[Rfam]
RNA: eL15-Euryarchaeota ribosomal protein leader
Organism: Salinadaptatus halalkaliphilus
RNA sequence: CCUGUUCGGCGACGACGCCACCACAGGACGGGAUGUGAUCCCACGAUCGGGAUUGAACCAGGAA
Numbered sequence: 001c002c003u004g005u006u007c008g009g010c011g012a013c014g015a016c017g018c019c020a021c022c023a024c025a026g027g028a029c030g031g032g033a034u035g036u037g038a039u040c041c042c043a044c045g046a047u048c049g050g051g052a053u054u055g056a057a058c059c060a061g062g063a064a
Base pairs, nucleotide, nucleotide: 001027002026003025004024005023030059031058037054038053039052040051041050